[Rfam]
RNA sequence: AUUUAAUAGAAGUUCAUCGAAUGUAUAUACUUGAGAAUAUGGCUCAAGCGUCUCUACCAGGUAACCUUAAAUUACCGGACUACAUGAAGAACGAUUGGAAAU
Numbered sequence: 001a002u003u004u005a006a007u008a009g010a011a012g013u014u015c016a017u018c019g020a021a022u023g024u025a026u027a028u029a030c031u032u033g034a035g036a037a038u039a040u041g042g043c044u045c046a047a048g049c050g051u052c053u054c055u056a057c058c059a060g061g062u063a064a065c066c067u068u069a070a071a072u073u074a075c076c077g078g079a080c081u082a083c084a085u086g087a088a089g090a091a092c093g094a095u096u097g098g099a100a101a102u
Stems, first nucleotide, its partner, number of pairs: 021085005030048006058078001060076005
Purine riboswitch aptamer: a 102-nucleotide sequence from Lederbergia citrea. The match comes from Rfam's covariance-model search (76 bits). Rfam describes the family as follows. Riboswitches are metabolite binding domains within certain messenger RNAs that serve as precision sensors for their corresponding targets.